Small nucleolar RNA SNORD83: a 74-nucleotide RNA from Muraenolepis orangiensis.
By type it is a C/D-box small nucleolar RNA.
It scores 44 bits against the family's covariance model.
The family has 7 seed sequences and 1,393 matches in Rfam 15.1.
Its family is annotated with nucleolus and RNA processing in the Gene Ontology.

RNA sequence: GCCACAUGAUGAGACCGUUAGCGACAGUAGCUCUGCCGUGAUGACCUGCUAUCUAUCACCCUAGUCUGAUGGCU
Numbered sequence: 001g002c003c004a005c006a007u008g009a010u011g012a013g014a015c016c017g018u019u020a021g022c023g024a025c026a027g028u029a030g031c032u033c034u035g036c037c038g039u040g041a042u043g044a045c046c047u048g049c050u051a052u053c054u055a056u057c058a059c060c061c062u063a064g065u066c067u068g069a070u071g072g073c074u
Stems, first nucleotide, its partner, number of pairs: 001073004030036002